Rhodo-rpoB RNA: a 91-nucleotide RNA sequence from Pseudooceanicola albus. Lineage of the source: Bacteria > Pseudomonadati > Alphaproteobacteria > Rhodobacterales > Pseudooceanicola. Pairs were carried over by alignment from the consensus structure, which is taken from published work. The match comes from Rfam's covariance-model search (75 bits).

RNA sequence: GGAUCGGGAGGUCACCAUUGGGACGGUGGCCAGGCAUGGAUCCGAACCCCCUGUCUCGAUUGGGCGUUGCGCCGGGGCCCGACGGCGCGCG
Number, nucleotide and partner (000 for none) at each position: 001g043002g042003a041004u040005c039006g000007g000008g000009a000010g031011g030012u029013c028014a027015c026016c025017a000018u000019u000020g000021g000022g000023a000024c000025g016026g015027u014028g013029g012030c011031c010032a000033g000034g000035c000036a000037u000038g000039g005040a004041u003042c002043c001044g000045a000046a000047c000048c000049c000050c000051c000052u000053g000054u000055c000056u000057c000058g000059a000060u000061u000062g000063g000064g000065c000066g000067u000068u091069g090070c087071g086072c085073c084074g083075g000076g000077g000078c000079c000080c000081g000082a000083c074084g073085g072086c071087g070088c000089g000090c069091g068